[Rfam]
RNA: Small nucleolar RNA SNORD87
RNA sequence: AUUGGCAUAAUGAUGAUUUUUUAAAAAAAAGCCAUUUACCCAACUGAGGGCUUCUUUGAAGUAACUUUAAAUCUGAUGUGCCAUA
Numbered sequence: 001a002u003u004g005g006c007a008u009a010a011u012g013a014u015g016a017u018u019u020u021u022u023a024a025a026a027a028a029a030a031g032c033c034a035u036u037u038a039c040c041c042a043a044c045u046g047a048g049g050g051c052u053u054c055u056u057u058g059a060a061g062u063a064a065c066u067u068u069a070a071a072u073c074u075g076a077u078g079u080g081c082c083a084u085a
Base pairs, nucleotide, nucleotide: 003083004082005081006080007079